[Rfam]
A member of the RNA family "MIR2275 microRNA precursor family" from Papaver nudicaule, 96 nucleotides long. Lineage of the source: Eukaryota > Viridiplantae > Embryophyta > Tracheophyta > Papaver. The match comes from Rfam's covariance-model search (73 bits).

RNA sequence: AAUUUGGAAGUGAGAAUUGGAUGAAACUAAAUUGAUGUUUGUCAAUUAGUUAGUUUAAGAUCAACUUGGUUUCCUCCAAUAUCUCACAUCCAGCAU
Numbered sequence: 001a002a003u004u005u006g007g008a009a010g011u012g013a014g015a016a017u018u019g020g021a022u023g024a025a026a027c028u029a030a031a032u033u034g035a036u037g038u039u040u041g042u043c044a045a046u047u048a049g050u051u052a053g054u055u056u057a058a059g060a061u062c063a064a065c066u067u068g069g070u071u072u073c074c075u076c077c078a079a080u081a082u083c084u085c086a087c088a089u090c091c092a093g094c095a096u
Stems, first nucleotide, its partner, number of pairs: 004093005011086004016080006023073008032064002